[Rfam]
RNA sequence: UAAACAGAUUAUUGUAUUCGACUGUAUUCAUGGCGUGAAACAGGAGAUUACAACUGUUUUUAACCGGAAAGUGAAUCAACUAAUAUAAUAGACUCCU
Numbered sequence: 001u002a003a004a005c006a007g008a009u010u011a012u013u014g015u016a017u018u019c020g021a022c023u024g025u026a027u028u029c030a031u032g033g034c035g036u037g038a039a040a041c042a043g044g045a046g047a048u049u050a051c052a053a054c055u056g057u058u059u060u061u062a063a064c065c066g067g068a069a070a071g072u073g074a075a076u077c078a079a080c081u082a083a084u085a086u087a088a089u090a091g092a093c094u095c096c097u
Base pairs, nucleotide, nucleotide: 004094009091010090011089012088013087014086015085017083018082020081023078024077026076027075028074029073030072031071034066035065037060038059039058040057041056042055043054

MIR6152 microRNA precursor family: a 97-nucleotide RNA from Nicotiana attenuata.
The source organism's lineage runs through Eukaryota, Tracheophyta, Solanales, Nicotianoideae and Nicotiana.